Nucleotides: 557
Base pairs, nucleotide, nucleotide: 007552008551009550010549011548012547013546014545015544016543022537023502024501028473029472030470031469032468033467034466035465036464037462038461039165040164047108048107049106050063051062052061069102070101071100072099073098074097075096078090079089080088113122114121115120123134124133125132126131136162137161138160141157142156143155144154169200170198171197172196173195174194180187181186210219211218222458223250224249225248226247227246233241234240253455254454255453256452261284262283263282264281265280266279267278291397292396293395295391296390297389298388306384308382309381313377314376315375316374317373318372320368321367322366326341327340328339330337344348350362351361352360403427404426405425406424407423408422409421410420434449435448436447437446438445489496490495512523513522514521515520
Number, partner (000 for none) and nucleotide at each position: 001000u002000a003000c004000a005000a006000a007552g008551g009550g010549c011548u012547u013546a014545c015544g016543g017000u018000g019000g020000a021000u022537g023502c024501c025000u026000u027000u028473g029472g030470c031469a032468c033467u034466a035465a036464g037462a038461a039165g040164c041000g042000a043000u044000g045000a046000a047108g048107g049106a050063c051062g052061u053000g054000g055000u056000a057000a058000g059000c060000u061052g062051c063050g064000a065000u066000a067000a068000g069102c070101u071100u072099c073098g074097g075096g076000g077000a078090g079089u080088g081000g082000c083000a084000c085000a086000c087000a088080c089079a090078c091000u092000u093000u094000g095000a096075u097074c098073c099072g100071g101070a102069g103000a104000u105000u106049u107048c108047c109000g110000a111000a112000u113122g114121g115120g116000g117000a118000a119000a120115c121114c122113c123134a124133c125132c126131a127000u128000u129000u130000a131126u132125g133124g134123u135000a136162u137161c138160a139000c140000u141157c142156a143155a144154u145000g146000a147000a148000u149000a150000c151000a152000u153000a154144g155143u156142u157141g158000u159000u160138u161137g162136a163000a164040g165039c166000g167000a168000a169200c170198g171197a172196g173195g174194g175000g176000a177000a178000g179000u180187g181186a182000a183000a184000c185000a186181u187180c188000u189000c190000a191000g192000u193000a194174c195173c196172c197171u198170c199000a200169g201000g202000a203000a204000g205000a206000g207000a208000a209000a210219u211218c212000a213000a214000u215000u216000c217000c218211g219210a220000g221000a222458u223250u224249c225248c226247c227246c228000c229000a230000g231000u232000a233241g234240u235000g236000g237000c238000g239000a240234g241233c242000g243000a244000a245000c246227g247226g248225g249224g250223a251000a252000c253455a254454g255453c256452c257000u258000a259000a260000a261284c262283c263282u264281u265280a266279u267278u268000c269000a270000u271000u272000a273000a274000u275000u276000u277000g278267a279266a280265u281264g282263a283262g284261g285000g286000g287000u288000c289000g290000u291397g292396g293395g294000a295391c296390c297389g298388c299000a300000a301000u302000g303000u304000g305000g306384g307000a308382c309381c310000g311000g312000a313377g314376a315375a316374g317373u318372u319000a320368g321367a322366g323000u324000a325000a326341c327340a328339g329000u330337c331000u332000g333000g334000a335000a336000a337330g338000u339328c340327u341326g342000g343000c344348a345000a346000g347000a348344u349000a350362g351361g352360g353000u354000g355000a356000u357000a358000g359000c360352c361351c362350c363000g364000u365000a366322c367321u368320c369000g370000a371000a372318a373317a374316c375315u376314u377313c378000g379000a380000a381309g382308g383000c384306c385000c386000u387000a388298g389297c390296g391295g392000c393000a394000u395293c396292c397291c398000g399000a400000g401000u402000a403427c404426c405425a406424c407423g408422a409421a410420a411000c412000a413000c414000g415000u416000g417000a418000a419000a420410u421409u422408u423407c424406g425405u426404g427403g428000g429000a430000a431000u432000c433000u434449g435448u436447g437446a438445g439000g440000a441000c442000c443000a444000c445438c446437u447436c448435a449434u450000a451000a452256g453255g454254c455253u456000a457000a458222a459000u460000a461038u462037u463000c464036c465035u466034u467033a468032g469031u470030g471000a472029c473028c474000g475000a476000u477000a478000g479000u480000g481000a482000a483000c484000a485000a486000g487000u488000a489496c490495c491000g492000u493000g494000a495490g496489g497000g498000a499000a500000a501024g502023g503000u504000g505000a506000a507000a508000a509000g510000a511000a512523c513522c514521c515520c516000g517000a518000g519000a520515g521514g522513g523512g524000a525000g526000u527000g528000a529000a530000a531000u532000a533000g534000a535000a536000c537022c538000u539000g540000a541000a542000a543016c544015c545014g546013u547012a548011a549010g550009u551008c552007u553000a554000c555000a556000a557000g
Shown here is a 557-nucleotide part of an RNA from Bdellovibrio bacteriovorus, a member of the family "Bacterial large subunit ribosomal RNA".
The sequence is in the family's curated seed alignment.
The source organism's lineage runs through Bacteria, Pseudomonadati, Bdellovibrionota, Pseudobdellovibrionaceae and Bdellovibrio bacteriovorus.
The family is grouped with related families in Rfam's "LSU clan".
Pairs were carried over by alignment from the consensus structure, which is taken from published work.